[Rfam]
RNA sequence: UAUAUUUGCCGCGCUAAUUAAAAAUUAAUUAGCUACAUAAGAAUCAUUUAUAACAAUAUUGGCAUG
Numbered sequence: 001u002a003u004a005u006u007u008g009c010c011g012c013g014c015u016a017a018u019u020a021a022a023a024a025u026u027a028a029u030u031a032g033c034u035a036c037a038u039a040a041g042a043a044u045c046a047u048u049u050a051u052a053a054c055a056a057u058a059u060u061g062g063c064a065u066g
Stems, first nucleotide, its partner, number of pairs: 014032006
Shown here is a 66-nucleotide RNA sequence, a member of the family "S15-Flavobacteria ribosomal protein leader". Pairs were carried over by alignment from the consensus structure, which is taken from published work. It is annotated as a cis-regulatory leader. Clan: Ribosomal Protein S15 Leader clan. For this family Rfam cites "Discovery of 20 novel ribosomal leader candidates in bacteria and archaea" (Eckert and Weinberg, BMC Microbiol, 2020).